Rfam assigns this 47-nucleotide sequence from Cohaesibacter sp. ES.047 to the family "Guanidine-II riboswitch aptamer (mini-ykkC)". The organism belongs to Cohaesibacter, within Bacteria. Simpler in structure and has fewer highly conserved nucleotide positions than the ykkC-yxkD leader.

RNA sequence: CCGUGAGGACGACCUCACCGAUCUGGUUUUCAUUCGGGACGGCCCGG
Numbered sequence: 001c002c003g004u005g006a007g008g009a010c011g012a013c014c015u016c017a018c019c020g021a022u023c024u025g026g027u028u029u030u031c032a033u034u035c036g037g038g039a040c041g042g043c044c045c046g047g
Base pairs, nucleotide, nucleotide: 001020003018004017005016006015007014008013034047035046036045037044038043